Description:
The family of this 133-nucleotide RNA from Cricetulus griseus is "Small nucleolar RNA SNORA69". Rfam's curators write: U69 is a member of the H/ACA class of small nucleolar RNAs (snoRNAs) which act as guides in the the modification of uridines to pseudouridines. Lineage of the source: Eukaryota > Metazoa > Euteleostomi > Myomorpha > Cricetulus.

RNA sequence: AAAGCAGGUCGCAAUUACAGUGCUUCAUUUUGUGGGAGUACUGCCAUUAUCCUGCUGAAAGAAAAGCCAUGUCGAUUGUGUUGGAUUUUGCCUUUCCUGGGGGUAAAAUCGUGACACUUUGACACGAACACAA
Numbered sequence: 001a002a003a004g005c006a007g008g009u010c011g012c013a014a015u016u017a018c019a020g021u022g023c024u025u026c027a028u029u030u031u032g033u034g035g036g037a038g039u040a041c042u043g044c045c046a047u048u049a050u051c052c053u054g055c056u057g058a059a060a061g062a063a064a065a066g067c068c069a070u071g072u073c074g075a076u077u078g079u080g081u082u083g084g085a086u087u088u089u090g091c092c093u094u095u096c097c098u099g100g101g102g103g104u105a106a107a108a109u110c111g112u113g114a115c116a117c118u119u120u121g122a123c124a125c126g127a128a129c130a131c132a133a
Stems, first nucleotide, its partner, number of pairs: 003056006018043009068126001070124006084110011
Notes: Rfam links the family to the GO terms RNA processing and nucleolus. It is annotated as an H/ACA-box small nucleolar RNA.